[Rfam]
RNA sequence: CGCCAAGCACAGCGUGGCAACACGUGAAAGUCGUCUGCAAUGCCGACAUCACCUGCGGGUGAGACGACCCACCUUUUCUCCGUCCCGCUAACCGGGACUUC
Number, nucleotide and partner (000 for none) at each position: 001c000002g000003c000004c000005a000006a000007g000008c000009a000010c000011a000012g025013c024014g023015u022016g021017g000018c000019a000020a000021c016022a015023c014024g013025u012026g000027a000028a000029a000030g000031u067032c066033g065034u064035c063036u000037g000038c000039a000040a000041u000042g000043c000044c000045g000046a000047c000048a000049u000050c061051a060052c059053c058054u000055g000056c000057g000058g053059g052060u051061g050062a000063g035064a034065c033066g032067a031068c000069c000070c000071a000072c000073c000074u000075u000076u000077u000078c000079u000080c000081c000082g098083u097084c096085c095086c094087g000088c000089u000090a000091a000092c000093c000094g086095g085096g084097a083098c082099u000100u000101c000
RNA: DUF3577 RNA